[Rfam]
Small nucleolar RNA SNORD20: a 78-nucleotide RNA from Ornithorhynchus anatinus.
Its family is annotated with RNA processing and nucleolus in the Gene Ontology.
The family's RNA type in Rfam is C/D-box small nucleolar RNA.
The literature on the family includes a 1994 paper in Mol Cell Biol by Nicoloso et al., "U20, a novel small nucleolar RNA, is encoded in an intron of the nucleolin gene in mammals".
The organism belongs to Ornithorhynchus, within Eukaryota.
About the family: U20 is a C/D box small nucleolar RNA that is encoded in intron 11 of the nucleolin gene in human, mouse and rat.

RNA sequence: UGGAUAUGAUGACUGAUUAUCUGAGACAAACUGAUGAAACCAAUAAAAAUUCCUCUAGAUAGUCAAGUUCUGAUCCAC
Numbered sequence: 001u002g003g004a005u006a007u008g009a010u011g012a013c014u015g016a017u018u019a020u021c022u023g024a025g026a027c028a029a030a031c032u033g034a035u036g037a038a039a040c041c042a043a044u045a046a047a048a049a050u051u052c053c054u055c056u057a058g059a060u061a062g063u064c065a066a067g068u069u070c071u072g073a074u075c076c077a078c
Stems, first nucleotide, its partner, number of pairs: 001077004